[Rfam]
RNA: Small nucleolar RNA SNORA28
RNA sequence: AAGCAACACUCUGUGGUAGAUAACUAAUUGUCUGCCUCAAUUUAUGCUUGCUAUAGUAACCAUAGUCUAACCUAUUCCAGUGGUUUCUGUAGAUGUGACCAUUUGUUAUAUAGACUUGAACAAA
Numbered sequence: 001a002a003g004c005a006a007c008a009c010u011c012u013g014u015g016g017u018a019g020a021u022a023a024c025u026a027a028u029u030g031u032c033u034g035c036c037u038c039a040a041u042u043u044a045u046g047c048u049u050g051c052u053a054u055a056g057u058a059a060c061c062a063u064a065g066u067c068u069a070a071c072c073u074a075u076u077c078c079a080g081u082g083g084u085u086u087c088u089g090u091a092g093a094u095g096u097g098a099c100c101a102u103u104u105g106u107u108a109u110a111u112a113g114a115c116u117u118g119a120a121c122a123a124a
Stems, first nucleotide, its partner, number of pairs: 009046001012039002015036001017034006064116006073110003078105003086098002